[Rfam]
RNA sequence: UCCUCGCUCAAAGAAUCGCAUUCAAAGCUUACGAACUGGGCAUUUCGAUGCUCGUACCAAUACCUUGCUUUGGGAGAAAGUCCCCGGACGCCCUGGCUUCGUGCCAGGCACUGCGGAAACGCGCUGCCAUAGAAGCACUUCAUAGCAGCUUAUGCCCUCUUACCCACCUAUGCGCCGGCUCCGACCCUCGUUGAACCGUCUGCACUCUUCAGCUUUCUCCCUAUUCACAGUCUCUUCGGCCAGUGCUAGGACAACCCUGGGAUGACGAUAUGAGUCUCACGUUUUGGCAUUGGAGUGAAGUUGCAGCUGAUUCGGGGGUUGCGUCGAGGAGGUUUCUUGGGGAAACAAUGGGAGACGGUCGUGGGAACCUGGUUAAGAAGGUUGCCAUUCGUCGAGAUUCUACAGCUAUGCGAUUGCUUACCUGUUUCUGAAUUCUCAGGAUUGGGUGAGUAACUCGAUGGGGCUUAUUCUUGAGGCGAGG
Numbered sequence: 001u002c003c004u005c006g007c008u009c010a011a012a013g014a015a016u017c018g019c020a021u022u023c024a025a026a027g028c029u030u031a032c033g034a035a036c037u038g039g040g041c042a043u044u045u046c047g048a049u050g051c052u053c054g055u056a057c058c059a060a061u062a063c064c065u066u067g068c069u070u071u072g073g074g075a076g077a078a079a080g081u082c083c084c085c086g087g088a089c090g091c092c093c094u095g096g097c098u099u100c101g102u103g104c105c106a107g108g109c110a111c112u113g114c115g116g117a118a119a120c121g122c123g124c125u126g127c128c129a130u131a132g133a134a135g136c137a138c139u140u141c142a143u144a145g146c147a148g149c150u151u152a153u154g155c156c157c158u159c160u161u162a163c164c165c166a167c168c169u170a171u172g173c174g175c176c177g178g179c180u181c182c183g184a185c186c187c188u189c190g191u192u193g194a195a196c197c198g199u200c201u202g203c204a205c206u207c208u209u210c211a212g213c214u215u216u217c218u219c220c221c222u223a224u225u226c227a228c229a230g231u232c233u234c235u236u237c238g239g240c241c242a243g244u245g246c247u248a249g250g251a252c253a254a255c256c257c258u259g260g261g262a263u264g265a266c267g268a269u270a271u272g273a274g275u276c277u278c279a280c281g282u283u284u285u286g287g288c289a290u291u292g293g294a295g296u297g298a299a300g301u302u303g304c305a306g307c308u309g310a311u312u313c314g315g316g317g318g319u320u321g322c323g324u325c326g327a328g329g330a331g332g333u334u335u336c337u338u339g340g341g342g343a344a345a346c347a348a349u350g351g352g353a354g355a356c357g358g359u360c361g362u363g364g365g366a367a368c369c370u371g372g373u374u375a376a377g378a379a380g381g382u383u384g385c386c387a388u389u390c391g392u393c394g395a396g397a398u399u400c401u402a403c404a405g406c407u408a409u410g411c412g413a414u415u416g417c418u419u420a421c422c423u424g425u426u427u428c429u430g431a432a433u434u435c436u437c438a439g440g441a442u443u444g445g446g447u448g449a450g451u452a453a454c455u456c457g458a459u460g461g462g463g464c465u466u467a468u469u470c471u472u473g474a475g476g477c478g479a480g481g
Stems, first nucleotide, its partner, number of pairs: 002481006008474004014415006022074001023072006038053006078466003082463004114121002328386002335381004344374003357368001359366002417450008
RNA: RNase MRP